Overview
This 234-nucleotide sequence from Clostridium ljungdahlii belongs to the Rfam family "Group II catalytic intron D1-D4-6".
RNA sequence: AAAAUCCUAUCAAGUAAUACCUAACCAGUAGCUUGUACCAAGUCCUUGGAAUCGAAACGGUAACGCUAGAUUUAAGCGUAGGACAGGGAUCAAACGAGCCGAAACGAAAGUGAAGCUAUUGAGCCACGAAAUUAUUAUCCAAACGAAGAGGUCGAUACUGUCUUAUUGGUAGCAGACAACAUUAUGUAAAUUAUUAUGGUGAGAUUUAUAUAACUCUUCCGGGGUCUGAGGGUU
Numbered sequence: 001a002a003a004a005u006c007c008u009a010u011c012a013a014g015u016a017a018u019a020c021c022u023a024a025c026c027a028g029u030a031g032c033u034u035g036u037a038c039c040a041a042g043u044c045c046u047u048g049g050a051a052u053c054g055a056a057a058c059g060g061u062a063a064c065g066c067u068a069g070a071u072u073u074a075a076g077c078g079u080a081g082g083a084c085a086g087g088g089a090u091c092a093a094a095c096g097a098g099c100c101g102a103a104a105c106g107a108a109a110g111u112g113a114a115g116c117u118a119u120u121g122a123g124c125c126a127c128g129a130a131a132u133u134a135u136u137a138u139c140c141a142a143a144c145g146a147a148g149a150g151g152u153c154g155a156u157a158c159u160g161u162c163u164u165a166u167u168g169g170u171a172g173c174a175g176a177c178a179a180c181a182u183u184a185u186g187u188a189a190a191u192u193a194u195u196a197u198g199g200u201g202a203g204a205u206u207u208a209u210a211u212a213a214c215u216c217u218u219c220c221g222g223g224g225u226c227u228g229a230g231g232g233u234u
Stems, first nucleotide, its partner, number of pairs: 011035004018030003022202001024200002038087002042084001044082003047078002049073005055067001058065002120228001121226001123225003127221002145219006151177003156171004182213011
Dot-bracket structure: ..........((((...(((.[.[[..))).))))..((..(.((((((((((.(..((....)).).)))))...)).))).).))................................((.(((.((................(((((((((..((((........))))...)))....(((((((((((......]].]))))))))))))))))))).)))).)......

NCBI's taxonomy places the organism under Bacteria, Bacillati, Bacillota, Eubacteriales, Clostridium.